RNA: Archaeal large subunit ribosomal RNA, nucleotides 2485 to 2955
Nucleotides: 471
Stems, first nucleotide, its partner, number of pairs: 015033002018030003034469004042449004048429001053077006062070002084425003089120002094115003099111001100109003124141005144421005150415002162397002168385002172381001174379003179373005184287001186285001291351004300343008310333005357361001435444002450464004
Number, partner (000 for none) and nucleotide at each position: 001000u002000u003000g004000a005000g006000u007000a008000a009000c010000a011000a012000a013000a014000a015033c016032a017000a018030u019029g020028g021000u022000g023000a024000g025000a026000a027000u028020c029019c030018a031000a032016u033015g034469c035468c036467c037466c038000g039000a040000a041000a042449a043448c044447c045446c046000a047000a048429g049000g050000u051000u052000u053077c054076c055075u056074c057073c058072g059000c060000a061000a062070g063069g064000u065000u066000u067000g068000u069063c070062c071000a072058c073057g074056g075055a076054g077053g078000g079000u080000g081000a082000g083000u084425c085424a086423g087000g088000g089120c090119c091000u092000a093000a094115g095114a096113u097000c098000a099111g100109g101108c102107c103000g104000a105000a106000a107102g108101g109100c110000g111099u112000a113096g114095u115094c116000g117000a118000u119090g120089g121000a122000c123000a124141a125140c126139a127138g128137g129000u130000c131000a132000a133000u134000a135000u136000u137128c138127c139126u140125g141124u142000a143000c144421u145420a146419c147418c148417c149000c150415u151414u152000g153000u154000u155000g156000g157000u158000a159000c160000g161000g162397a163396g164000g165000g166000a167000c168385g169384g170000a171000g172381g173000a174379g175378g176377c177000u178000a179373g180372g181371u182370u183369a184287g185000c186285c187000g188000a189000a190000a191000g192000a193000u194000g195000g196000u197000u198000a199000u200000a201000g202000g203000u204000u205000u206000a207000a208000g209000g210000a211000c212000a213000c214000a215000a216000g217000g218000u219000g220000a221000c222000c223000c224000u225000g226000c227000u228000u229000u230000u231000u232000c233000a234000g235000g236000g237000u238000a239000a240000g241000a242000a243000g244000g245000g246000g247000u248000a249000g250000a251000g252000a253000a254000a255000a256000u257000g258000c259000c260000u261000c262000g263000a264000g265000c266000c267000g268000a269000g270000g271000u272000c273000c274000g275000a276000g277000u278000a279000c280000c281000a282000a283000g284000c285186g286000c287184u288000g289000c290000a291351g292350c293349g294348c295000u296000g297000a298000a299000g300343u301342a302341u303340g304339a305338g306337c307336c308000c309000c310333g311332u312331g313330g314329a315000c316000u317000a318000g319000c320000a321000a322000u323000u324000g325000c326000u327000u328000c329314u330313c331312c332311a333310c334000g335000a336307g337306g338305c339304u340303c341302a342301u343300a344000c345000u346000a347000g348294g349293c350292g351291c352000u353000a354000u355000g356000g357361c358000g359000c360000a361357g362000a363000a364000g365000u366000a367000u368000g369183u370182a371181a372180c373179u374000g375000a376000u377176g378175c379174c380000a381172u382000a383000c384169u385168c386000c387000c388000a389000g390000g391000a392000a393000a394000a395000g396163c397162u398000c399000g400000a401000a402000c403000g404000a405000c406000c407000u408000u409000c410000a411000a412000c413000a414151a415150a416000a417148g418147g419146g420145u421144a422000c423086c424085u425084g426000u427000a428000a429048c430000c431000g432000a433000a434000a435444c436443c437000g438000a439000c440000a441000c442000a443436g444435g445000u446045g447044g448043g449042u450464a451463g452462g453461u454000a455000g456000a457000g458000a459000a460000u461453a462452c463451c464450u465000a466037g467036g468035g469034g470000c471000g